[Rfam]
RNA sequence: AUAAUGAGACUUCAGUCGAUGGACUGCUUGGCGAGAACCGCGGAGGGGUGAGAUUCCCAUGG
Numbered sequence: 001a002u003a004a005u006g007a008g009a010c011u012u013c014a015g016u017c018g019a020u021g022g023a024c025u026g027c028u029u030g031g032c033g034a035g036a037a038c039c040g041c042g043g044a045g046g047g048g049u050g051a052g053a054u055u056c057c058c059a060u061g062g
Stems, first nucleotide, its partner, number of pairs: 012059001013026004027045003031041003046058003
Dot-bracket structure: ...........(((((......))))(((.(((.....))).)))(((.......))))...
A member of the RNA family "pemK RNA" from Butyrivibrio sp. YAB3001, 62 nucleotides long.
The organism belongs to Butyrivibrio, within Bacteria.
Rfam classes the family as a cis-regulatory element.
The family's consensus secondary structure is taken from published work.